[Rfam]
RNA sequence: GGGGACGAAUGGAUUCCGGUGGAUCCUGCGGACUUCAAAUCCGUUAUCGGGUGGGUGAUCCGGCCGAGGUAGGUUCGACUCCUACACGUUCCC
Numbered sequence: 001g002g003g004g005a006c007g008a009a010u011g012g013a014u015u016c017c018g019g020u021g022g023a024u025c026c027u028g029c030g031g032a033c034u035u036c037a038a039a040u041c042c043g044u045u046a047u048c049g050g051g052u053g054g055g056u057g058a059u060c061c062g063g064c065c066g067a068g069g070u071a072g073g074u075u076c077g078a079c080u081c082c083u084a085c086a087c088g089u090u091c092c093c
Stems, first nucleotide, its partner, number of pairs: 001093007011026006028044005047067004070084004

Selenocysteine transfer RNA: a 93-nucleotide RNA sequence from Desulfitobacterium hafniense. Pairs were carried over by alignment from the consensus structure, which is taken from published work. Its family is annotated with triplet codon-amino acid adaptor activity in the Gene Ontology.